The family of this 75-nucleotide RNA sequence from Haemonchus placei is "mir-5928 microRNA precursor family".
RNA sequence: AGCCCAAAUUUGAUGUAGGGUAGAUCAGAGGGAUCAUCUAACCCUACUAAACUACUCUACUUCGAGUUUGUGCCC
Numbered sequence: 001a002g003c004c005c006a007a008a009u010u011u012g013a014u015g016u017a018g019g020g021u022a023g024a025u026c027a028g029a030g031g032g033a034u035c036a037u038c039u040a041a042c043c044c045u046a047c048u049a050a051a052c053u054a055c056u057c058u059a060c061u062u063c064g065a066g067u068u069u070g071u072g073c074c075c
Base pairs, nucleotide, nucleotide: 002073003072005070006069007068008067009066011064012063013062015060016059017058018057019056020055021054022053023052025050027048028047030045032043034041

Its family is annotated with miRNA-mediated post-transcriptional gene silencing and RISC complex in the Gene Ontology. The family has 5 seed sequences and 1,672 matches in Rfam 15.1. The family's consensus secondary structure was predicted with RNAalifold. Lineage of the source: Eukaryota > Ecdysozoa > Rhabditida > Rhabditomorpha > Haemonchus.